[Rfam]
Nucleotides: 151
Base pairs, nucleotide, nucleotide: 003076004075005074006073007072008071009070011020013018026048027047031042032041033040034039087142088141089140090139091138099129100128102126103125105123106122107121108120109119
Number, partner (000 for none) and nucleotide at each position: 001000a002000a003076g004075c005074g006073a007072a008071g009070g010000u011020c012000c013018c014000a015000g016000c017000g018013g019000a020011g021000g022000g023000g024000c025000a026048a027047g028000c029000c030000a031042c032041u033040c034039a035000g036000a037000a038000a039034u040033g041032a042031g043000g044000c045000c046000u047027c048026u049000c050000u051000a052000a053000c054000a055000u056000u057000a058000u059000u060000c061000a062000a063000u064000a065000a066000a067000a068000a069000a070009c071008c072007u073006u074005c075004g076003c077000a078000g079000a080000g081000u082000u083000a084000c085000u086000u087142g088141c089140c090139a091138a092000a093000u094000c095000g096000u097000a098000c099129g100128g101000c102126g103125u104000c105123c106122a107121g108120a109119a110000a111000u112000c113000u114000u115000u116000c117000a118000c119109u120108u121107c122106u123105g124000a125103g126102c127000g128100u129099c130000u131000u132000g133000a134000a135000c136000c137000c138091u139090u140089g141088g142087c143000u144000a145000c146000a147000u148000u149000u150000u151000u